Rfam assigns this 50-nucleotide RNA from Rhizobium sp. YS-1r to the family "Guanidine-II riboswitch aptamer (mini-ykkC)". A reference for the family is Weinberg et al. (2007), "Identification of 22 candidate structured RNAs in bacteria using the CMfinder comparative genomics pipeline", Nucleic Acids Res. The family's consensus secondary structure is taken from published work. Gene Ontology term of the family: regulation of gene expression. From the family's description: Simpler in structure and has fewer highly conserved nucleotide positions than the ykkC-yxkD leader.

RNA sequence: GAGCGAGGACGGCCUCCCCCAUAUUGGGCCAAGACUUCGGGACGACCCGG
Numbered sequence: 001g002a003g004c005g006a007g008g009a010c011g012g013c014c015u016c017c018c019c020c021a022u023a024u025u026g027g028g029c030c031a032a033g034a035c036u037u038c039g040g041g042a043c044g045a046c047c048c049g050g
Base pairs, nucleotide, nucleotide: 001020003018005016006015007014008013037050038049039048040047041046